Rfam assigns this 73-nucleotide RNA sequence from Mus musculus to the family "mir-1264 microRNA precursor family". The source organism's lineage runs through Eukaryota, Craniata, Mammalia, Mus and Mus. Rfam's curators put it in the seed alignment.
RNA sequence: UAUAGCAGGUCCUCAAUAAGUAUUUGUUGAAAAAAUAAAUGAAGCAACAAAUCUUAUUUGAGCACCUGUUAUG
Numbered sequence: 001u002a003u004a005g006c007a008g009g010u011c012c013u014c015a016a017u018a019a020g021u022a023u024u025u026g027u028u029g030a031a032a033a034a035a036u037a038a039a040u041g042a043a044g045c046a047a048c049a050a051a052u053c054u055u056a057u058u059u060g061a062g063c064a065c066c067u068g069u070u071a072u073g
Stems, first nucleotide, its partner, number of pairs: 007067004012062005017056004022052008